[Rfam]
RNA sequence: GAUCCGAAGGGCGAUGGAGCUCGCCCGGGCCCCGGCCCAAACCGCCGACCCGGCUAAUAGCCCCUUCCAUGCU
Dot-bracket structure: .........((((..[[.[[[))))..................(((.....)))....]]].]].........
RNA: Fluoride riboswitch aptamer (crcB RNA motif)